[Rfam]
RNA sequence: UUGGUCGCCUGGUGAGGGGCCAGCAAUUCGACACGUCUUGUGUCCAUGUUGCUCAGUGAAGGAGGAUAUGGUUAUGAGAA
Numbered sequence: 001u002u003g004g005u006c007g008c009c010u011g012g013u014g015a016g017g018g019g020c021c022a023g024c025a026a027u028u029c030g031a032c033a034c035g036u037c038u039u040g041u042g043u044c045c046a047u048g049u050u051g052c053u054c055a056g057u058g059a060a061g062g063a064g065g066a067u068a069u070g071g072u073u074a075u076g077a078g079a080a
Stems, first nucleotide, its partner, number of pairs: 001023006008017002037078006044071007052064003
Repression of heat shock gene expression (ROSE) element: an 80-nucleotide sequence from Saccharibacter sp. 17.LH.SD. The family has 13 seed sequences and 381 matches in Rfam 15.1. From the family's description: This family represents a 5' UTR cis-regulatory element found in heat shock mRNAs and is known as the ROSE (repression of heat shock gene expression) element. The ROSE element is a negative regulator of heat shock gene expression. It scores 47 bits against the family's covariance model.